[Rfam]
RNA sequence: CUACGAAAAUGGCAAACUCAUUGAAAAAUGGGGACGCAAAGCCUAUGGGUCUAAGGUAUUUAACUACGAUAGCCAGGUUACCGAA
Numbered sequence: 001c002u003a004c005g006a007a008a009a010u011g012g013c014a015a016a017c018u019c020a021u022u023g024a025a026a027a028a029u030g031g032g033g034a035c036g037c038a039a040a041g042c043c044u045a046u047g048g049g050u051c052u053a054a055g056g057u058a059u060u061u062a063a064c065u066a067c068g069a070u071a072g073c074c075a076g077g078u079u080a081c082c083g084a085a
Stems, first nucleotide, its partner, number of pairs: 012037002017032006040079004046075003049070003056064002
c-di-GMP-I riboswitch aptamer: an 85-nucleotide sequence from Pontibacillus marinus. Gene Ontology term of the family: cyclic-di-GMP binding. Lineage of the source: Bacteria > Bacilli > Caryophanales > Pontibacillus > Pontibacillus marinus. A search with the family's covariance model found it, with a score of 79 bits.